[Rfam]
RNA sequence: AGCACUUAUAAGGGUGCUGGCAGAUGUAAGUCCGACGUGCAGACCAUGCACGGGCCCGGGUAACCCGGGCCUCCUGGGAUUAC
Numbered sequence: 001a002g003c004a005c006u007u008a009u010a011a012g013g014g015u016g017c018u019g020g021c022a023g024a025u026g027u028a029a030g031u032c033c034g035a036c037g038u039g040c041a042g043a044c045c046a047u048g049c050a051c052g053g054g055c056c057c058g059g060g061u062a063a064c065c066c067g068g069g070c071c072u073c074c075u076g077g078g079a080u081u082a083c
Stems, first nucleotide, its partner, number of pairs: 001018006026083004032078002037051005052072009